[Rfam]
RNA sequence: GGGUUGGCUUUAGCUCAGUGGUUACUUCGACAAUGCUUUCCAUGGUUAGGAAACCAACCUCUCUGGGUGGUUCGAGACCCGUGGGCCCUCUCCAGUCCUUUU
Numbered sequence: 001g002g003g004u005u006g007g008c009u010u011u012a013g014c015u016c017a018g019u020g021g022u023u024a025c026u027u028c029g030a031c032a033a034u035g036c037u038u039u040c041c042a043u044g045g046u047u048a049g050g051a052a053a054c055c056a057a058c059c060u061c062u063c064u065g066g067g068u069g070g071u072u073c074g075a076g077a078c079c080c081g082u083g084g085g086c087c088c089u090c091u092c093c094a095g096u097c098c099u100u101u102u
Base pairs, nucleotide, nucleotide: 002097003096004095005094006093007092013086014085015084016083018082019081020080021079026076027075028074029073030072
The record is a 102-nucleotide RNA sequence from Theropithecus gelada, which matches "Vault RNA" in Rfam. Taxonomically the source falls in Theropithecus (Eukaryota, Eumetazoa, Sarcopterygii, Haplorrhini). It is annotated as a non-coding RNA gene. Rfam 15.1 lists 2,873 matches to the family in 431 species.